[Rfam]
RNA sequence: AUCCAAGGAUGGCAUGCUAAGUGCGCCUCGUCCAUGAGGCAACGCAUGCACUAGUACAUCCUGUACG
Numbered sequence: 001a002u003c004c005a006a007g008g009a010u011g012g013c014a015u016g017c018u019a020a021g022u023g024c025g026c027c028u029c030g031u032c033c034a035u036g037a038g039g040c041a042a043c044g045c046a047u048g049c050a051c052u053a054g055u056a057c058a059u060c061c062u063g064u065a066c067g
Stems, first nucleotide, its partner, number of pairs: 012049006025040005054066004
Dot-bracket structure: ...........((((((.......(((((......)))))...))))))....((((.....)))).
RNA: Bacillaceae-1 RNA
Organism: Brevibacillus panacihumi